The family of this 125-nucleotide sequence from Flavobacterium pygoscelis is "Bacteroidete tryptophan peptide leader RNA". It is annotated as a cis-regulatory leader.
[Rfam]
RNA sequence: UUGCUGCAAUAAAAUAAAACAUGAACACAAUUUUAAACAAUACUUGGUGGUGGAACAAUUUACGUCAAACGUCGUGAACUAAGCUCCUAUAGUAUUAUUUGAACUAUAAAUAUAAAAGGCUUGUC
Numbered sequence: 001u002u003g004c005u006g007c008a009a010u011a012a013a014a015u016a017a018a019a020c021a022u023g024a025a026c027a028c029a030a031u032u033u034u035a036a037a038c039a040a041u042a043c044u045u046g047g048u049g050g051u052g053g054a055a056c057a058a059u060u061u062a063c064g065u066c067a068a069a070c071g072u073c074g075u076g077a078a079c080u081a082a083g084c085u086c087c088u089a090u091a092g093u094a095u096u097a098u099u100u101g102a103a104c105u106a107u108a109a110a111u112a113u114a115a116a117a118g119g120c121u122u123g124u125c
Stems, first nucleotide, its partner, number of pairs: 036100002040095005047088001049087002052084001057080001059078003062072003

The source organism's lineage runs through Bacteria, Flavobacteriia, Flavobacteriales, Flavobacteriaceae and Flavobacterium.